TPP riboswitch aptamer (THI element): a 122-nucleotide RNA sequence from Pelodictyon phaeoclathratiforme.
[Rfam]
RNA sequence: UUCACAUCUUGGGGGUGCUGAAUUUUUUUCCUGUCCUGCUGGAGGAAAAAAAGAAGGCUGAGAUCAAACCCUUAUAACUUGAUGCAGGUAAUGCUGACGCAAGAAAAGAUUAUGAUGGCGUU
Numbered sequence: 001u002u003c004a005c006a007u008c009u010u011g012g013g014g015g016u017g018c019u020g021a022a023u024u025u026u027u028u029u030c031c032u033g034u035c036c037u038g039c040u041g042g043a044g045g046a047a048a049a050a051a052a053g054a055a056g057g058c059u060g061a062g063a064u065c066a067a068a069c070c071c072u073u074a075u076a077a078c079u080u081g082a083u084g085c086a087g088g089u090a091a092u093g094c095u096g097a098c099g100c101a102a103g104a105a106a107a108g109a110u111u112a113u114g115a116u117g118g119c120g121u122u
Stems, first nucleotide, its partner, number of pairs: 006110005011072004016066001017058003078103004085096003
Overview:
A reference for the family is Thore et al. (2006), "Structure of the eukaryotic thiamine pyrophosphate riboswitch with its regulatory ligand", Science. A search with the family's covariance model found it, with a score of 56 bits.